[Rfam]
RNA: Glycine riboswitch aptamer
Organism: Spinactinospora alkalitolerans
RNA sequence: UGAUACCACACGGGAGAGACCCUUCGCGGGGCGCCGACGGGGCAAGACUCCCCAGUAACCUCUCAGGCAAAAGGACCGUGUGGAGAGG
Numbered sequence: 001u002g003a004u005a006c007c008a009c010a011c012g013g014g015a016g017a018g019a020c021c022c023u024u025c026g027c028g029g030g031g032c033g034c035c036g037a038c039g040g041g042g043c044a045a046g047a048c049u050c051c052c053c054a055g056u057a058a059c060c061u062c063u064c065a066g067g068c069a070a071a072a073g074g075a076c077c078g079u080g081u082g083g084a085g086a087g088g
Stems, first nucleotide, its partner, number of pairs: 006083008020031004033068003036064002040062003046056001
Dot-bracket structure: .....((((((((......((((....)))).(((((..(((...(.........)...))))).))).......)))))))).....